[Rfam]
The family of this 115-nucleotide RNA from Salegentibacter flavus is "6S-Flavo RNA". It is annotated as a small RNA.

RNA sequence: ACUCAACACGAAUUCUUUGAGAAGGGUGAGUUUAAGUUGUAAAAGCGUGCCGUAUCCCUCGGGAAAGCGGAUUCUUGAGCAGCUUGUUAGCCCUAAACCUGAUUUUAAAGAGUUU
Number, nucleotide and partner (000 for none) at each position: 001a000002c000003u000004c000005a000006a000007c000008a000009c000010g000011a000012a000013u000014u000015c000016u000017u000018u000019g000020a000021g000022a000023a094024g093025g092026g091027u090028g000029a000030g000031u000032u000033u000034a085035a084036g083037u082038u081039g000040u000041a000042a000043a076044a075045g074046c000047g000048u000049g000050c070051c069052g068053u067054a000055u000056c000057c000058c000059u000060c000061g000062g000063g000064a000065a000066a000067g053068c052069g051070g050071a000072u000073u000074c045075u044076u043077g000078a000079g000080c000081a038082g037083c036084u035085u034086g000087u000088u000089a000090g027091c026092c025093c024094u023095a000096a000097a000098c000099c000100u000101g000102a000103u000104u000105u000106u000107a000108a000109a000110g000111a000112g000113u000114u000115u000
The base pairs follow the family's consensus structure, which is taken from published work. The source organism's lineage runs through Bacteria, Flavobacteriia, Flavobacteriales, Flavobacteriaceae and Salegentibacter.